RNA sequence: CUUGAUCGAGCCCAGCAGCAGCGGCUCGUCCGCCGCGCGCUCCCGGCCGUAGGUGGCCAGCAGGGCCUGCGCCUC
Numbered sequence: 001c002u003u004g005a006u007c008g009a010g011c012c013c014a015g016c017a018g019c020a021g022c023g024g025c026u027c028g029u030c031c032g033c034c035g036c037g038c039g040c041u042c043c044c045g046g047c048c049g050u051a052g053g054u055g056g057c058c059a060g061c062a063g064g065g066c067c068u069g070c071g072c073c074u075c
Stems, first nucleotide, its partner, number of pairs: 014026003031071003038065001043060001045058001047056003